[Rfam]
RNA sequence: CAUAAUCCUCGUUAGGUGAGGCGUCUGUAUAAACACAUGCCAUUGCCCGGAAACGUCGAAAGACGCCAAUGGGUCACCAGGUCUUGCCGGACUAAGGCUUGACUUAAUAUGGCUGAGUGUUCGCUCUACGUUAUACAGUGCUAAAGCUCAACAAGGGGGAGUCUA
Numbered sequence: 001c002a003u004a005a006u007c008c009u010c011g012u013u014a015g016g017u018g019a020g021g022c023g024u025c026u027g028u029a030u031a032a033a034c035a036c037a038u039g040c041c042a043u044u045g046c047c048c049g050g051a052a053a054c055g056u057c058g059a060a061a062g063a064c065g066c067c068a069a070u071g072g073g074u075c076a077c078c079a080g081g082u083c084u085u086g087c088c089g090g091a092c093u094a095a096g097g098c099u100u101g102a103c104u105u106a107a108u109a110u111g112g113c114u115g116a117g118u119g120u121u122c123g124c125u126c127u128a129c130g131u132u133a134u135a136c137a138g139u140g141c142u143a144a145a146g147c148u149c150a151a152c153a154a155g156g157g158g159g160a161g162u163c164u165a
Stems, first nucleotide, its partner, number of pairs: 006160005011152002013095001015148003020142003025138008039113005045074005054065004080104004086098003115126003

Description
Shown here is a 165-nucleotide RNA sequence from Paenalicyclobacillus mengziensis, a member of the family "M-box riboswitch aptamer (ykoK leader)". Taxonomically the source falls in Paenalicyclobacillus (Bacteria, Bacillati, Bacillota, Bacilli). The family has 159 seed sequences and 1,095 matches in Rfam 15.1. The pairing is the family consensus, mapped onto this sequence. Its family is annotated with regulation of gene expression and response to magnesium ion in the Gene Ontology. Rfam's curators write: M-box riboswitch, also know as ykoK leader is described as a metaloregulatory RNA that sense divalent metals and function as a genetic control element of genes related to divalent metal transport in bacteria. For this family Rfam cites "Magnesium-sensing riboswitches in bacteria" (Ramesh and Winkler, RNA Biol, 2010).